[Rfam]
About this RNA:
A member of the RNA family "Eukaryotic large subunit ribosomal RNA" from Onychostoma macrolepis, 418 nucleotides of a longer RNA. A reference for the family is Cannone et al. (2002), "The comparative RNA web (CRW) site: an online database of comparative sequence and structure information for ribosomal, intron, and other RNAs", BMC Bioinformatics. A search with the family's covariance model found it, with a score of 2788 bits. Lineage of the source: Eukaryota > Metazoa > Craniata > Neopterygii > Onychostoma.

RNA sequence: ACUGUCGUUACAAUAGUAAUCCUGCUCAGUACGAGAGGAACCGCAGGUUCAGACAUUUGGUGCGUGUGUUUGGCUGAGGAGCCACUGGUGCGAAGCUACCAUCUGUGGGAUUAUGACUGAACGCCUCUAAGUCAGAAUCCCGCCUAGACGUGACGAUACCGCAGCGCCGCGGGGCUCUGAUUGGCCUGGGAUAGCCGGUCGACCCUCCGGGGCCGGCCGGUGCGGAGAGCCAUUCGUGACUGGACCGGGGAGCGGCCGAACGAGCGCCGCCCCUCUCUUGAGACGCACCUAAAGUUUGUGGAGAAUCCGGUGCUAAAUGACUCGUAGACGACCUGAUUCUGGGUCAGGGUUUCGUGCGUGGCAGAGCAGCUCACUCGCUGCGAUCCAUUGAAAGUCUUCCCUCGAUCCAAUCUUUUGU
Numbered sequence: 001a002c003u004g005u006c007g008u009u010a011c012a013a014u015a016g017u018a019a020u021c022c023u024g025c026u027c028a029g030u031a032c033g034a035g036a037g038g039a040a041c042c043g044c045a046g047g048u049u050c051a052g053a054c055a056u057u058u059g060g061u062g063c064g065u066g067u068g069u070u071u072g073g074c075u076g077a078g079g080a081g082c083c084a085c086u087g088g089u090g091c092g093a094a095g096c097u098a099c100c101a102u103c104u105g106u107g108g109g110a111u112u113a114u115g116a117c118u119g120a121a122c123g124c125c126u127c128u129a130a131g132u133c134a135g136a137a138u139c140c141c142g143c144c145u146a147g148a149c150g151u152g153a154c155g156a157u158a159c160c161g162c163a164g165c166g167c168c169g170c171g172g173g174g175c176u177c178u179g180a181u182u183g184g185c186c187u188g189g190g191a192u193a194g195c196c197g198g199u200c201g202a203c204c205c206u207c208c209g210g211g212g213c214c215g216g217c218c219g220g221u222g223c224g225g226a227g228a229g230c231c232a233u234u235c236g237u238g239a240c241u242g243g244a245c246c247g248g249g250g251a252g253c254g255g256c257c258g259a260a261c262g263a264g265c266g267c268c269g270c271c272c273c274u275c276u277c278u279u280g281a282g283a284c285g286c287a288c289c290u291a292a293a294g295u296u297u298g299u300g301g302a303g304a305a306u307c308c309g310g311u312g313c314u315a316a317a318u319g320a321c322u323c324g325u326a327g328a329c330g331a332c333c334u335g336a337u338u339c340u341g342g343g344u345c346a347g348g349g350u351u352u353c354g355u356g357c358g359u360g361g362c363a364g365a366g367c368a369g370c371u372c373a374c375u376c377g378c379u380g381c382g383a384u385c386c387a388u389u390g391a392a393a394g395u396c397u398u399c400c401c402u403c404g405a406u407c408c409a410a411u412c413u414u415u416u417g418u
Base pairs, nucleotide, nucleotide: 004157005156006155007154008153009152010151011150014146015145016144019049021047022046023045024044025043050105051104052103053102058098059097060096065092066091067090068089069088071084072083073082074081075080107141108140109139114134115133116132117131118130163314164313165312166311167310168309169308315416316415317414319412321335324332341408342407343406344405345404347401348400349399351394352393358388359387360386361385363384366381367380368379369378370377